Record summary: Shown here is a 131-nucleotide RNA sequence from Erinaceus europaeus, a member of the family "Small nucleolar RNA SNORA49". By type it is an H/ACA-box small nucleolar RNA. The sequence is in the family's curated seed alignment. NCBI's taxonomy places the organism under Eukaryota, Deuterostomia, Sarcopterygii, Dipnotetrapodomorpha, Erinaceus. About the family: The snoRNA ACA49 has no identified RNA target.
Nucleotides: 131
Stems, first nucleotide, its partner, number of pairs: 003059007011051001017046006023039005069125003073121002082110005089104001091102002
Number, partner (000 for none) and nucleotide at each position: 001000c002000u003059c004058c005057c006056u007055c008054a009053g010000c011051c012000u013000u014000a015000c016000u017046c018045c019044a020043a021042g022041g023039g024038c025037u026036u027035u028000g029000u030000c031000c032000u033000g034000u035027g036026a037025a038024g039023u040000g041022c042021c043020u044019u045018g046017g047000c048000a049000u050000u051011g052000c053009c054008u055007g056006a057005g058004g059003g060000a061000a062000c063000a064000g065000c066000a067000a068000c069125a070124g071123c072000a073121c074120a075000c076000c077000u078000c079000c080000c081000u082110c083109c084108c085107c086106a087000g088000g089104a090000a091102g092101a093000u094000u095000c096000u097000g098000u099000u100000c101092u102091c103000c104089u105000g106086u107085g108084g109083g110082g111000c112000c113000u114000g115000c116000a117000g118000c119000c120074u121073g122000c123071g124070c125069u126000g127000a128000c129000a130000g131000c